[Rfam]
RNA: U1 spliceosomal RNA
Organism: Clarias magur
RNA sequence: AUACUUACCUGGCAGGGGUGAUACCAUGAUCAAGAAGGUGGUUUGCCCAAGGUGAGGCUCAGCCAUUGCACUUAGGCUGUGCUGACCCUUGCGAAUUCCCCAAAUGUGGGAAUCUCGACUGCAUAGUUUCUGAUAGUGGGGGACUGCGUUCGCGCUCUCCCCUG
Numbered sequence: 001a002u003a004c005u006u007a008c009c010u011g012g013c014a015g016g017g018g019u020g021a022u023a024c025c026a027u028g029a030u031c032a033a034g035a036a037g038g039u040g041g042u043u044u045g046c047c048c049a050a051g052g053u054g055a056g057g058c059u060c061a062g063c064c065a066u067u068g069c070a071c072u073u074a075g076g077c078u079g080u081g082c083u084g085a086c087c088c089u090u091g092c093g094a095a096u097u098c099c100c101c102a103a104a105u106g107u108g109g110g111a112a113u114c115u116c117g118a119c120u121g122c123a124u125a126g127u128u129u130c131u132g133a134u135a136g137u138g139g140g141g142g143a144c145u146g147c148g149u150u151c152g153c154g155c156u157c158u159c160c161c162c163u164g
Stems, first nucleotide, its partner, number of pairs: 012122004016048006023042005049090004054086001056083003060079005092117003095113003099109002138163006146155003